RNA sequence: CUUUUAGUAUAAGUAUAUCUCAUGUAAUAUUGGGGAAAUACUUAUACUAAAA
Numbered sequence: 001c002u003u004u005u006a007g008u009a010u011a012a013g014u015a016u017a018u019c020u021c022a023u024g025u026a027a028u029a030u031u032g033g034g035g036a037a038a039u040a041c042u043u044a045u046a047c048u049a050a051a052a
Stems, first nucleotide, its partner, number of pairs: 006048007014040003018036004022031001